[Rfam]
RNA sequence: GCUAUGCCUAGGCUGAUCCCCGAAAACCCGUACACCUCUACGGACUGGCAUAGCUCCUACCAAUAGAGG
Number, nucleotide and partner (000 for none) at each position: 001g054002c053003u052004a051005u050006g049007c048008c047009u000010a000011g021012g020013c000014u000015g000016a000017u000018c000019c000020c012021c011022g000023a000024a000025a000026a000027c000028c043029c042030g041031u040032a000033c000034a000035c069036c068037u067038c066039u065040a031041c030042g029043g028044a000045c000046u000047g008048g007049c006050a005051u004052a003053g002054c001055u000056c000057c000058u000059a000060c000061c000062a000063a000064u000065a039066g038067a037068g036069g035
Shown here is a 69-nucleotide RNA from Xenorhabdus bovienii, a member of the family "int-alpA RNA". The family's consensus secondary structure is taken from published work. Acidobacteria (1 example), Planctomycetes (1 example), Proteobacteria. The organism belongs to Xenorhabdus bovienii, within Bacteria.